Notes
A member of the RNA family "Archaeal large subunit ribosomal RNA" from Thermoplasmatales archaeon B_DKE, 579 nucleotides of a longer RNA. The family's consensus secondary structure is taken from published work. NCBI's taxonomy places the organism under Archaea, Methanobacteriati, Thermoplasmatota, Thermoplasmata, Thermoplasmatales. A reference for the family is Yusupov et al. (2001), "Crystal structure of the ribosome at 5.5 A resolution", Science. The family has 91 seed sequences and 2,955 matches in Rfam 15.1.

Nucleotides: 579
Base pairs, nucleotide, nucleotide: 001575002574003573004572005571006570007569008568010567011566014562015561022396023395025393027392028391029388030387031386032385033384035189036188037187038186042181043180045178046177047176048175051154052153053152054151055150057148058147059146060145061144062143063142064141065140068137078136079135080134081133082132085119086118087117097110098109100107101106158169159168160167161166192205193203194202195201206228207227208226209225210224231334232333237289238288239287240286241285242284243269244268246264247263248262249261250260251259270279271278294320295319296318297317298316299315300314301313302312322331324329345374346373347372348371349370351369354368355367357365405446406445407444409443410440411439412438413437414436415435416434420430421429457532458530459529460528461527462524463521464520465519466518467517470495471494474489475488476487477486478485498510499509500508501507538556539555540554541553542551543550544549
Number, partner (000 for none) and nucleotide at each position: 001575c002574u003573c004572c005571c006570a007569c008568g009000u010567g011566a012000a013000a014562g015561c016000g017000a018000a019000g020000u021000c022396c023395c024000c025393g026000u027392g028391g029388a030387g031386c032385u033384u034000u035189a036188c037187u038186g039000c040000a041000g042181c043180c044000u045178g046177u047176a048175g049000c050000u051154g052153u053152a054151a055150u056000a057148c058147g059146a060145u061144u062143u063142c064141u065140a066000u067000u068137g069000c070000g071000u072000a073000g074000u075000g076000u077000a078136g079135g080134a081133a082132g083000g084000a085119g086118c087117c088000g089000u090000c091000g092000a093000a094000g095000c096000c097110a098109g099000a100107g101106u102000u103000u104000u105000g106101g107100c108000c109098u110097u111000g112000g113000u114000g115000g116000a117087g118086g119085c120000a121000a122000c123000g124000a125000u126000g127000a128000a129000a130000c131000a132082c133081u134080u135079c136078c137068c138000u139000u140065u141064a142063g143062a144061a145060a146059u147058u148057g149000c150055g151054u152053u153052a154051c155000u156000a157000a158169c159168c160167u161166c162000g163000u164000a165000a166161g167160a168159g169158g170000g171000a172000c173000a174000a175048c176047u177046a178045u179000u180043g181042g182000u183000g184000g185000g186038c187037a188036g189035u190000u191000u192205g193203g194202g195201u196000g197000g198000g199000g200000c201195g202194c203193c204000a205192c206228g207227c208226u209225c210224c211000c212000a213000a214000a215000a216000a217000u218000u219000a220000a221000a222000c223000a224210g225209g226208a227207g228206c229000c230000c231334c232333c233000a234000a235000a236000g237289g238288u239287u240286a241285g242284c243269u244268c245000a246264g247263g248262a249261g250260g251259g252000u253000c254000a255000g256000a257000a258000a259251u260250c261249c262248u263247c264246c265000g266000u267000a268244g269243a270279g271278u272000g273000u274000a275000a276000g277000a278271g279270c280000a281000a282000a283000a284242g285241c286240u287239a288238a289237c290000u291000u292000g293000a294320c295319u296318g297317u298316g299315u300314u301313g302312a303000g304000g305000a306000c307000a308000a309000u310000a311000a312302u313301c314300a315299a316298c317297g318296c319295a320294g321000a322331u323000g324329c325000g326000a327000a328000a329324g330000c331322a332000u333232g334231g335000u336000c337000u338000a339000a340000c341000g342000a343000a344000c345374c346373a347372c348371c349370c350000u351369g352000u353000c354368c355367c356000c357365c358000u359000u360000u361000a362000g363000u364000g365357g366000a367355g368354g369351c370349g371348g372347g373346u374345g375000a376000u377000a378000a379000g380000a381000g382000a383000g384033a385032a386031g387030u388029u389000a390000c391028c392027c393025c394000a395023g396022g397000g398000a399000u400000a401000a402000c403000u404000g405446a406445g407444u408000u409443g410440u411439c412438c413437c414436c415435g416434g417000c418000a419000a420430g421429a422000g423000u424000u425000c426000a427000c428000a429421u430420c431000g432000a433000c434416c435415c436414g437413g438412g439411g440410g441000u442000u443409u444407g445406c446405u447000a448000c449000u450000u451000c452000g453000a454000u455000g456000u457532c458530g459529u460528c461527u462524g463521u464520u465519c466518c467517u468000a469000u470495c471494c472000u473000g474489g475488u476487g477486c478485u479000g480000a481000a482000c483000a484000a485478g486477g487476u488475g489474c490000c491000a492000a493000g494471g495470g496000u497000g498510g499509g500508g501507c502000u503000g504000u505000u506000c507501g508500c509499c510498c511000a512000u513000u514000a515000a516000a517467a518466g519465g520464a521463a522000u523000c524462c525000u526000g527461a528460g529459a530458u531000g532457g533000g534000u535000u536000c537000a538556c539555u540554a541553c542551g543550u544549c545000g546000c547000g548000a549544g550543a551542c552000a553541g554540u555539a556538g557000g558000g559000u560000u561015g562014c563000u564000u565000c566011u567010c568008c569007g570006u571005g572004g573003g574002a575001g576000u577000g578000u579000u